[Rfam]
RNA sequence: GGAUGCAAGUUUCAGGCCAUAGCAAAAGCGCCGAUGGUGUGGCCUGUCAGAUUCCAAUGAAUCUGUGAAUUCUACU
Numbered sequence: 001g002g003a004u005g006c007a008a009g010u011u012u013c014a015g016g017c018c019a020u021a022g023c024a025a026a027a028g029c030g031c032c033g034a035u036g037g038u039g040u041g042g043c044c045u046g047u048c049a050g051a052u053u054c055c056a057a058u059g060a061a062u063c064u065g066u067g068a069a070u071u072c073u074a075c076u
Base pairs, nucleotide, nucleotide: 015044016043017042018041021076022075024073026071027070028040029039030038048065049064050063051062052061053060054059

The family of this 76-nucleotide RNA from Alligator mississippiensis is "Mammalian CPEB3 ribozyme". NCBI's taxonomy places the organism under Eukaryota, Tetrapoda, Sauria, Archosauria, Alligator. Rfam's curators write: The mammalian CPEB3 ribozyme is a self cleaving RNA located in the second intron of the CPEB3 gene which belongs to a family of genes regulating messenger RNA polyadenylation.